[Rfam]
RNA sequence: GGAAAUAGUGAGGGGAUUUUUUGGUGCAGCUAUGUCGCCUUAUUAUUUGUUACGAUUGUUUAGCCAAAACGUGAAAAUCGCAACAAUGCAUC
Number, nucleotide and partner (000 for none) at each position: 001g000002g000003a000004a000005a000006u000007a000008g089009u088010g087011a000012g000013g000014g000015g000016a000017u000018u000019u000020u000021u000022u000023g000024g000025u000026g038027c037028a000029g035030c034031u000032a000033u000034g030035u029036c000037g027038c026039c000040u000041u000042a000043u000044u000045a000046u000047u000048u000049g084050u083051u082052a000053c080054g079055a078056u000057u000058g072059u071060u000061u000062a000063g000064c000065c000066a000067a000068a000069a000070c000071g059072u058073g000074a000075a000076a000077a000078u055079c054080g053081c000082a051083a050084c049085a000086a000087u010088g009089c008090a000091u000092c000
Fst antitoxin sRNA: a 92-nucleotide RNA sequence from Staphylococcus aureus. It is annotated as an antitoxin RNA. Rfam describes the family as follows. It is located on the opposite strand of SprA1 sRNA. Its family is annotated with mRNA binding in the Gene Ontology.